[Rfam]
RNA sequence: CCGCCCGUCGCUGCAACCGAUCGGAGGGUCCUGUGAACUCAUCGGACUGACCUGCUCCGCUUUGCGUAGCUGGUCGGGAAGUUGCGUAAAUAGAGCCCUCUAAAGGAUGCAAAAGUCGUAACACGGUUUCCGUAGGUGAACCUGCGGAAGGAUCAUUC
Numbered sequence: 001c002c003g004c005c006c007g008u009c010g011c012u013g014c015a016a017c018c019g020a021u022c023g024g025a026g027g028g029u030c031c032u033g034u035g036a037a038c039u040c041a042u043c044g045g046a047c048u049g050a051c052c053u054g055c056u057c058c059g060c061u062u063u064g065c066g067u068a069g070c071u072g073g074u075c076g077g078g079a080a081g082u083u084g085c086g087u088a089a090a091u092a093g094a095g096c097c098c099u100c101u102a103a104a105g106g107a108u109g110c111a112a113a114a115g116u117c118g119u120a121a122c123a124c125g126g127u128u129u130c131c132g133u134a135g136g137u138g139a140a141c142c143u144g145c146g147g148a149a150g151g152a153u154c155a156u157u158c
Base pairs, nucleotide, nucleotide: 001125003122006118007117009115012111013110014109015108017106018105021102023101024100025099026098027097028096029095031093032092033091034090037087038086040084041083043081047077048076049075050074051073052072054070055069056068058066059065127150128149129148130147131146132145133144134143135142136141
A member of the RNA family "Eukaryotic small subunit ribosomal RNA" from Rhabdornis inornatus, 158 nucleotides of a longer RNA. Taxonomically the source falls in Rhabdornis (Eukaryota, Chordata, Dipnotetrapodomorpha, Sauropsida).